[Rfam]
RNA sequence: UGUACCUGCAUGUGAUGAAAACUCUGUUGGUAGGGACAUCUGAGAGUGUGAUGAAUACCAACAUCUCUGAGCUGGACA
Numbered sequence: 001u002g003u004a005c006c007u008g009c010a011u012g013u014g015a016u017g018a019a020a021a022c023u024c025u026g027u028u029g030g031u032a033g034g035g036a037c038a039u040c041u042g043a044g045a046g047u048g049u050g051a052u053g054a055a056u057a058c059c060a061a062c063a064u065c066u067c068u069g070a071g072c073u074g075g076a077c078a
Base pairs, nucleotide, nucleotide: 001078002077003076005075
RNA: Small nucleolar RNA SNORD74
Organism: Alligator mississippiensis